[Rfam]
RNA sequence: CCUCGACUUUAACAUGGAGGUACUUGCUGGAUGCCUAAAAAGUAAGUGCUUCCAUGUUUUAGUUGCGG
Numbered sequence: 001c002c003u004c005g006a007c008u009u010u011a012a013c014a015u016g017g018a019g020g021u022a023c024u025u026g027c028u029g030g031a032u033g034c035c036u037a038a039a040a041a042g043u044a045a046g047u048g049c050u051u052c053c054a055u056g057u058u059u060u061a062g063u064u065g066c067g068g
Base pairs, nucleotide, nucleotide: 001068002067005064006063007062008061011058012057013056014055015054016053017052018051019050020049021048022047023046024045025044026043027042028041

Record summary
This 68-nucleotide RNA from Chionis minor belongs to the Rfam family "mir-302 microRNA precursor family". Rfam 15.1 lists 2,090 matches to the family in 516 species. NCBI's taxonomy places the organism under Eukaryota, Opisthokonta, Craniata, Euteleostomi, Chionis. On this family, see Mineno et al., Nucleic Acids Res 2006: "The expression profile of microRNAs in mouse embryos". Rfam links the family to the GO terms miRNA-mediated post-transcriptional gene silencing and RISC complex.